[Rfam]
RNA sequence: GCGGGGCUGCGGGGUGCGUCAGGAGACACAUAUCCCCGGGGCCUUAUCGACUCCCUCGGGAGCUGUCCCCGCCCUGGUCCGUGGACCGGGGCACACGGCGCCCACCUACGCUGUAGGUUUCCCGGGAUCGAUCCUCCAACGGCUUUCGUGGCUCCGCG
Numbered sequence: 001g002c003g004g005g006g007c008u009g010c011g012g013g014g015u016g017c018g019u020c021a022g023g024a025g026a027c028a029c030a031u032a033u034c035c036c037c038g039g040g041g042c043c044u045u046a047u048c049g050a051c052u053c054c055c056u057c058g059g060g061a062g063c064u065g066u067c068c069c070c071g072c073c074c075u076g077g078u079c080c081g082u083g084g085a086c087c088g089g090g091g092c093a094c095a096c097g098g099c100g101c102c103c104a105c106c107u108a109c110g111c112u113g114u115a116g117g118u119u120u121c122c123c124g125g126g127a128u129c130g131a132u133c134c135u136c137c138a139a140c141g142g143c144u145u146u147c148g149u150g151g152c153u154c155c156g157c158g
Stems, first nucleotide, its partner, number of pairs: 002156010012145004017141003033127004038122003041118003058103003062099005071092007
Notes:
The record is a 158-nucleotide RNA from Methylobacterium sp. 4-46, which matches "6S / SsrS RNA" in Rfam. By type it is a non-coding RNA gene. The sequence is in the family's curated seed alignment. The source organism's lineage runs through Bacteria, Pseudomonadati, Pseudomonadota, Alphaproteobacteria and Methylobacterium. On this family, see Trotochaud and Wassarman, Nat Struct Mol Biol 2005: "A highly conserved 6S RNA structure is required for regulation of transcription".